[Rfam]
RNA sequence: UGCACUAGAGGGUUGUCGCGUAUCCUGACGGGCUUUGCGACAGCCGUAUGUUUAACCGACCUUUUAGGAGAUCAAUAGUGGCCCGUAUUGCUGGCAUUAAUGUGCCUGAU
Numbered sequence: 001u002g003c004a005c006u007a008g009a010g011g012g013u014u015g016u017c018g019c020g021u022a023u024c025c026u027g028a029c030g031g032g033c034u035u036u037g038c039g040a041c042a043g044c045c046g047u048a049u050g051u052u053u054a055a056c057c058g059a060c061c062u063u064u065u066a067g068g069a070g071a072u073c074a075a076u077a078g079u080g081g082c083c084c085g086u087a088u089u090g091c092u093g094g095c096a097u098u099a100a101u102g103u104g105c106c107u108g109a110u
Stems, first nucleotide, its partner, number of pairs: 004052001006050002009047001011045003024094002029085004038108002
The family of this 110-nucleotide sequence from Succinatimonas hippei is "Alpha operon ribosome binding site". Pairs were carried over by alignment from the consensus structure, which is taken from published work. A search with the family's covariance model found it, with a score of 65 bits. Rfam's curators write: The bacterial alpha operon ribosome binding site is surrounded by this complex pseudoknotted structure. Translation of the mRNA produces 4 ribosomal protein products, one of which (S4) acts as a translational repressor by binding to the nested pseudoknot region. The mechanism of repression is thought to involve a conformational switch in the pseudoknot region and ribosome entrapment. By type it is a cis-regulatory element. NCBI's taxonomy places the organism under Bacteria, Pseudomonadati, Gammaproteobacteria, Succinatimonas, Succinatimonas hippei.